Background:
MIR162_1 microRNA precursor family: a 103-nucleotide sequence from Solanum tuberosum. A search with the family's covariance model found it, with a score of 96 bits. Rfam 15.1 lists 270 matches to the family in 158 species. Taxonomically the source falls in Solanum (Eukaryota, Euphyllophyta, Magnoliopsida, Solanaceae). Its Rfam clan is "MIR167 microRNA precursor clan". The base pairs follow the family's consensus structure, which was predicted with RNAalifold.
RNA sequence: GGUUAGAACACUGGAGGCAGCGGUUCAUCGAUCUGUUCCCUGAAAAGCGAUAAAUAUAGCAACAGGAAGCGAUCGAUAAACCUCUGCAUCCAGUGCUUAACCC
Number, nucleotide and partner (000 for none) at each position: 001g000002g000003u000004u000005a000006g000007a000008a000009c000010a000011c000012u000013g091014g090015a089016g000017g000018c086019a085020g084021c000022g082023g081024u080025u079026c000027a077028u076029c075030g074031a073032u072033c071034u000035g000036u068037u067038c066039c000040c000041u000042g000043a000044a000045a000046a000047g000048c000049g000050a000051u000052a000053a000054a000055u000056a000057u000058a000059g000060c000061a000062a000063c000064a000065g000066g038067a037068a036069g000070c000071g033072a032073u031074c030075g029076a028077u027078a000079a025080a024081c023082c022083u000084c020085u019086g018087c000088a000089u015090c014091c013092a000093g000094u000095g000096c000097u000098u000099a000100a000101c000102c000103c000